[Rfam]
Overview
The family of this 117-nucleotide RNA from Cryptosporidium parvum is "U5 spliceosomal RNA". By type it is a spliceosomal small nuclear RNA. U5 RNA is a component of both types of known spliceosome. The precise function of this molecule is unknown, though it is known that the 5' loop is required for splice site selection and p220 binding, and that both the 3' stem-loop and the Sm site are important for Sm protein binding and cap methylation.
RNA sequence: ACACCGUACUGAUGUGAUAUCUCGUACCAAUCUUUCGCCUUUUACUAAAGAUUGCCGUGUCACAUCAGCUUGGUAGUUAUUACCAGGUCAUAAUAUUUGGGGAGUUUCUACACUCCG
Number, nucleotide and partner (000 for none) at each position: 001a000002c000003a078004c000005c076006g000007u000008a000009c068010u067011g066012a065013u064014g063015u062016g061017a060018u059019a058020u000021c000022u000023c000024g000025u000026a000027c000028c054029a053030a052031u051032c050033u049034u048035u047036c000037g000038c000039c000040u000041u000042u000043u000044a000045c000046u000047a035048a034049a033050g032051a031052u030053u029054g028055c000056c000057g000058u019059g018060u017061c016062a015063c014064a013065u012066c011067a010068g009069c000070u000071u000072g000073g000074u000075a000076g005077u000078u003079a000080u000081u000082a000083c000084c000085a000086g000087g000088u000089c000090a000091u000092a000093a000094u000095a000096u000097u000098u000099g000100g000101g116102g115103a114104g113105u112106u000107u000108c000109u000110a000111c000112a105113c104114u103115c102116c101117g000